[Rfam]
Nucleotides: 135
Stems, first nucleotide, its partner, number of pairs: 028061005034049005097120005103114004
Number, partner (000 for none) and nucleotide at each position: 001000u002000a003000a004000a005000u006000g007000a008000a009000u010000a011000u012000g013000c014000c015000g016000u017000u018000a019000c020000c021000g022000u023000a024000g025000a026000c027000a028061g029060a030059a031058g032057g033000u034049g035048c036047c037046u038045g039000u040000u041000c042000a043000g044000g045038c046037a047036g048035g049034c050000u051000u052000a053000a054000u055000a056000u057032c058031c059030u060029u061028c062000c063000g064000a065000g066000g067000u068000g069000c070000u071000g072000a073000u074000g075000a076000a077000g078000a079000u080000a081000u082000a083000g084000a085000u086000u087000u088000g089000a090000u091000a092000u093000c094000u095000g096000a097120a098119g099118c100117c101116u102000u103114c104113g105112c106111a107000u108000g109000u110000c111106u112105g113104c114103g115000u116101g117100g118099g119098c120097u121000u122000u123000u124000u125000u126000c127000a128000u129000u130000u131000u132000g133000a134000u135000a